The record is a 132-nucleotide sequence from Salvelinus namaycush, which matches "Small nucleolar RNA SNORA57" in Rfam. The match comes from Rfam's covariance-model search (64 bits). From the family's description: U99 belongs to the H/ACA class of snoRNAs which are thought to guide the sites of modification of uridines to pseudouridines, the target for this family is unknown.
[Rfam]
RNA sequence: CCUUCGUUCUUGGCAUGCAUGCUGUUUCCCCAGUCUCGUGUGUGUGUGGAGGGACAAAAAGGUGCAGUGCUAUGUCUUCCGUGCCAGGAUGUUUGUUGUCCUCUGGUUCUAUCCUCAAUCGCUGGUACACUA
Numbered sequence: 001c002c003u004u005c006g007u008u009c010u011u012g013g014c015a016u017g018c019a020u021g022c023u024g025u026u027u028c029c030c031c032a033g034u035c036u037c038g039u040g041u042g043u044g045u046g047u048g049g050a051g052g053g054a055c056a057a058a059a060a061g062g063u064g065c066a067g068u069g070c071u072a073u074g075u076c077u078u079c080c081g082u083g084c085c086a087g088g089a090u091g092u093u094u095g096u097u098g099u100c101c102u103c104u105g106g107u108u109c110u111a112u113c114c115u116c117a118a119u120c121g122c123u124g125g126u127a128c129a130c131u132a
Stems, first nucleotide, its partner, number of pairs: 001052005014040004019036001021034004065124005084106004089102001091100001

A reference for the family is Vitali et al. (2003), "Identification of 13 novel human modification guide RNAs", Nucleic Acids Res. Its family is annotated with RNA processing and nucleolus in the Gene Ontology. Pairs were carried over by alignment from the consensus structure, which was predicted with PFOLD. Rfam classes the family as an H/ACA-box small nucleolar RNA.